Shown here is a 212-nucleotide RNA sequence from Pseudomonas sp. HAR-UPW-AIA-41, a member of the family "PhrS". Rfam classes the family as a small RNA.
[Rfam]
RNA sequence: AUCCUUUCAAGGCGCCACAGUUGCAGGAGGCUCCCCAUGUUUCUCGAUGAAGUCGUACUUUCCGGAAUUCUGAUCGUUGGUCUGUGUGUGGUGUUCUGCGCAGGCGUCGGUGUUUUCAUCUGGAAGGACUCGCACAAGCGCAAGCAAGGCUAGUUCUUCCGGUUUACAGGCACGCAAGGCAUUUUGGGCGAUUUGAAUCGCCCAUUUUUUUU
Numbered sequence: 001a002u003c004c005u006u007u008c009a010a011g012g013c014g015c016c017a018c019a020g021u022u023g024c025a026g027g028a029g030g031c032u033c034c035c036c037a038u039g040u041u042u043c044u045c046g047a048u049g050a051a052g053u054c055g056u057a058c059u060u061u062c063c064g065g066a067a068u069u070c071u072g073a074u075c076g077u078u079g080g081u082c083u084g085u086g087u088g089u090g091g092u093g094u095u096c097u098g099c100g101c102a103g104g105c106g107u108c109g110g111u112g113u114u115u116u117c118a119u120c121u122g123g124a125a126g127g128a129c130u131c132g133c134a135c136a137a138g139c140g141c142a143a144g145c146a147a148g149g150c151u152a153g154u155u156c157u158u159c160c161g162g163u164u165u166a167c168a169g170g171c172a173c174g175c176a177a178g179g180c181a182u183u184u185u186g187g188g189c190g191a192u193u194u195g196a197a198u199c200g201c202c203c204a205u206u207u208u209u210u211u212u
Base pairs, nucleotide, nucleotide: 012101013100052062080089081088170180171179173178186203187202188201189200190199191198192197